Annotation: Shown here is a 100-nucleotide RNA sequence from Xenopus laevis, a member of the family "Vault RNA". Rfam's curators write: This family of RNAs are found as part of the enigmatic vault ribonucleoprotein complex.

[Rfam]
RNA sequence: AGGCUGGCAAUAUAGCUCAGCAGUUUCUAUUCAGGCUCUCUGAUUUAUCAGACUAACCCUCUCGGGGGUUCAAAACUUGCGGGUGCUACCCAGCCUUUUU
Numbered sequence: 001a002g003g004c005u006g007g008c009a010a011u012a013u014a015g016c017u018c019a020g021c022a023g024u025u026u027c028u029a030u031u032c033a034g035g036c037u038c039u040c041u042g043a044u045u046u047a048u049c050a051g052a053c054u055a056a057c058c059c060u061c062u063c064g065g066g067g068g069u070u071c072a073a074a075a076c077u078u079g080c081g082g083g084u085g086c087u088a089c090c091c092a093g094c095c096u097u098u099u100u
Stems, first nucleotide, its partner, number of pairs: 002095006015084004020080004028074001030072001
The match comes from Rfam's covariance-model search (47 bits). The family's consensus secondary structure is taken from published work.